[Rfam]
RNA sequence: CCAAAGGCUCUUUUAAGAGCCGCCCAUAUUUUCUAUUAAAAGCAG
Numbered sequence: 001c002c003a004a005a006g007g008c009u010c011u012u013u014u015a016a017g018a019g020c021c022g023c024c025c026a027u028a029u030u031u032u033c034u035a036u037u038a039a040a041a042g043c044a045g
Base pairs, nucleotide, nucleotide: 006021007020008019009018010017011016